Annotation:
A member of the RNA family "mir-4776 microRNA precursor family" from Homo sapiens, 80 nucleotides long. The organism belongs to Homo, within Eukaryota. Pairs were carried over by alignment from the consensus structure, which was predicted with RNAalifold.
[Rfam]
RNA sequence: CUAUAUGCAGUGGACCAGGAUGGCAAGGGCUCUCCUGAAAGGACAGUAGAGCCCUUGCCAUCCUGGUCCACUGCAUAUAG
Numbered sequence: 001c002u003a004u005a006u007g008c009a010g011u012g013g014a015c016c017a018g019g020a021u022g023g024c025a026a027g028g029g030c031u032c033u034c035c036u037g038a039a040a041g042g043a044c045a046g047u048a049g050a051g052c053c054c055u056u057g058c059c060a061u062c063c064u065g066g067u068c069c070a071c072u073g074c075a076u077a078u079a080g
Stems, first nucleotide, its partner, number of pairs: 001080033035046003